[Rfam]
RNA sequence: CAGGCCGAGAGGCGCUGCAACGGACCCAGGUCCGCCACGCUCGGCCCCCGUGAACCGCAACAAGGGCGCCUCCCGACA
Numbered sequence: 001c002a003g004g005c006c007g008a009g010a011g012g013c014g015c016u017g018c019a020a021c022g023g024a025c026c027c028a029g030g031u032c033c034g035c036c037a038c039g040c041u042c043g044g045c046c047c048c049c050g051u052g053a054a055c056c057g058c059a060a061c062a063a064g065g066g067c068g069c070c071u072c073c074c075g076a077c078a
Stems, first nucleotide, its partner, number of pairs: 003046006021034005
RNA: SAH (S-adenosyl-L-homocysteine) riboswitch aptamer
Organism: Amycolatopsis methanolica